[Rfam]
Shown here is a 119-nucleotide RNA from Heyndrickxia sporothermodurans, a member of the family "BsrF".
The match comes from Rfam's covariance-model search (69 bits).
A reference for the family is Saito et al. (2008), "Novel small RNA-encoding genes in the intergenic regions of Bacillus subtilis", Gene.
RNA sequence: GCGAUGAGCUAUUUGCGUAAGCCGAAAACCGAGCGUUCGCUAAACGUAUGAAUGUGGUCAUACGGGUUAUUCGCCGCAAAACUUUUUUUGAAAGACGCCUACGGAUUUAGGCGUCUUUU
Numbered sequence: 001g002c003g004a005u006g007a008g009c010u011a012u013u014u015g016c017g018u019a020a021g022c023c024g025a026a027a028a029c030c031g032a033g034c035g036u037u038c039g040c041u042a043a044a045c046g047u048a049u050g051a052a053u054g055u056g057g058u059c060a061u062a063c064g065g066g067u068u069a070u071u072c073g074c075c076g077c078a079a080a081a082c083u084u085u086u087u088u089u090g091a092a093a094g095a096c097g098c099c100u101a102c103g104g105a106u107u108u109a110g111g112c113g114u115c116u117u118u119u
Base pairs, nucleotide, nucleotide: 013079014078015077016076017075023073024072025071026070027068028067029066030065033040034039045064046063048061049060050059090119091118092117093116094115095114096113097112098111099110100109101108